[Rfam]
Nucleotides: 075
Stems, first nucleotide, its partner, number of pairs: 001074003005070004011064009021054003025050006032043001034041002
Number, partner (000 for none) and nucleotide at each position: 001074g002073g003072c004000a005070c006069a007068a008067a009000c010000u011064u012063g013062a014061a015060g016059u017058a018057a019056a020000g021054u022053a023052c024000u025050u026049u027048a028047g029046u030045a031000g032043g033000u034041u035040u036000g037000g038000a039000c040035a041034a042000u043032c044000u045030u046029a047028c048027u049026g050025a051000c052023g053022u054021a055000g056019u057018u058017u059016a060015c061014u062013u063012c064011g065000a066000a067008u068007u069006u070005g071000g072003g073002c074001c075000c